L2-Alphaproteobacteria ribosomal protein leader: a 61-nucleotide sequence. The literature on the family includes a 2020 paper in BMC Microbiol by Eckert and Weinberg, "Discovery of 20 novel ribosomal leader candidates in bacteria and archaea". It is annotated as a cis-regulatory leader.
RNA sequence: GGGGACCUUCGGGGCCCUGCACCUCGGGCCCAAGGGCCCCCAAACAGACGGAAGACAGAAA
Numbered sequence: 001g002g003g004g005a006c007c008u009u010c011g012g013g014g015c016c017c018u019g020c021a022c023c024u025c026g027g028g029c030c031c032a033a034g035g036g037c038c039c040c041c042a043a044a045c046a047g048a049c050g051g052a053a054g055a056c057a058g059a060a061a
Stems, first nucleotide, its partner, number of pairs: 001018004006014003026039005